[Rfam]
RNA: 6S / SsrS RNA
Organism: Chiayiivirga flava
RNA sequence: CAUCCUCUGCCGUGUCCGACAGCGUACGCUUACAUAUUGCCUUGACCCUAAUGAAUGACCCCGGGAAUGCGACAUUGUGCCGGCGUGCAUGUCCGCCAACGUGCGGGAAGCCCGAAGCGCAACGAGCCUUCCCACCUGAUCCUCUGGGAUCAAGGUCGUUUGGUACGCAUCGCCACGGCGGAGGUUGC
Numbered sequence: 001c002a003u004c005c006u007c008u009g010c011c012g013u014g015u016c017c018g019a020c021a022g023c024g025u026a027c028g029c030u031u032a033c034a035u036a037u038u039g040c041c042u043u044g045a046c047c048c049u050a051a052u053g054a055a056u057g058a059c060c061c062c063g064g065g066a067a068u069g070c071g072a073c074a075u076u077g078u079g080c081c082g083g084c085g086u087g088c089a090u091g092u093c094c095g096c097c098a099a100c101g102u103g104c105g106g107g108a109a110g111c112c113c114g115a116a117g118c119g120c121a122a123c124g125a126g127c128c129u130u131c132c133c134a135c136c137u138g139a140u141c142c143u144c145u146g147g148g149a150u151c152a153a154g155g156u157c158g159u160u161u162g163g164u165a166c167g168c169a170u171c172g173c174c175a176c177g178g179c180g181g182a183g184g185u186u187g188c
Base pairs, nucleotide, nucleotide: 002186004184005183006182007181008180009179010178011177012176013175014174017172018171019170039156040155041154043152044151045150047148048147063133064132065131067129069127070126075122076121077120078119079118080117087111088110092107093106094105095104096103